[Rfam]
RNA sequence: UACGAUGACCGGGCCCCUCUGGCGAAAGUAGCGGCACUUUCGCGAUGUCGGCGUCGACC
Numbered sequence: 001u002a003c004g005a006u007g008a009c010c011g012g013g014c015c016c017c018u019c020u021g022g023c024g025a026a027a028g029u030a031g032c033g034g035c036a037c038u039u040u041c042g043c044g045a046u047g048u049c050g051g052c053g054u055c056g057a058c059c
Base pairs, nucleotide, nucleotide: 006053007052009051010050011049012048022043023042024041025040026039027038028037029036

The family of this 59-nucleotide sequence from Pseudoruegeria sp. SK021 is "terC RNA".
The organism belongs to Pseudoruegeria, within Bacteria.
The family's consensus secondary structure is taken from published work.
The family's RNA type in Rfam is cis-regulatory element.